Shown here is a 126-nucleotide RNA from Zarconia navalis, a member of the family "Guanidine-I riboswitch aptamer". Taxonomically the source falls in Zarconia navalis (Bacteria, Bacillati, Cyanophyceae, Zarconia). This family represents a conserved RNA structure found upstream of the ykkC and yxkD genes in Bacillus subtilis and related genes in other bacteria.
RNA sequence: AAAAAUAGCUUCUAGGGUUCCGGUUAAAAUUCGGUUUAUUUUCUAAAUUUUAACGUCUGGUCCGAGAGAAGCCGGUCGCUUUAUUCGAUCGAAGCGAUUACACGGCGGGAAAAAAGCCCGGGAGAA
Numbered sequence: 001a002a003a004a005a006u007a008g009c010u011u012c013u014a015g016g017g018u019u020c021c022g023g024u025u026a027a028a029a030u031u032c033g034g035u036u037u038a039u040u041u042u043c044u045a046a047a048u049u050u051u052a053a054c055g056u057c058u059g060g061u062c063c064g065a066g067a068g069a070a071g072c073c074g075g076u077c078g079c080u081u082u083a084u085u086c087g088a089u090c091g092a093a094g095c096g097a098u099u100a101c102a103c104g105g106c107g108g109g110a111a112a113a114a115a116g117c118c119c120g121g122g123a124g125a126a
Base pairs, nucleotide, nucleotide: 008072009071010070011069012068015063016062020060021059022057023054024053025052026051027050028049029048030047031046074099075098076097077096078095079094080093081092101121103124107119108118109117